Annotation: The record is a 60-nucleotide sequence from Pelusios castaneus, which matches "Ma3 gene ribosomal frameshift signal" in Rfam. It scores 40 bits against the family's covariance model. The family has 12 seed sequences and 565 matches in Rfam 15.1. The base pairs follow the family's consensus structure, which is taken from published work. NCBI's taxonomy places the organism under Eukaryota, Opisthokonta, Chordata, Testudinata, Pelusios. Gene Ontology term of the family: translational frameshifting.
RNA sequence: GGGAAACGGAUGCAGGGUUUGGAAAGGGAGCCAUCCAGGCCCUCAGGAUCUGAAGGCUCC
Numbered sequence: 001g002g003g004a005a006a007c008g009g010a011u012g013c014a015g016g017g018u019u020u021g022g023a024a025a026g027g028g029a030g031c032c033a034u035c036c037a038g039g040c041c042c043u044c045a046g047g048a049u050c051u052g053a054a055g056g057c058u059c060c
Base pairs, nucleotide, nucleotide: 014043015042016041017040018039019038020037021036022035024034028059029058030057031056032055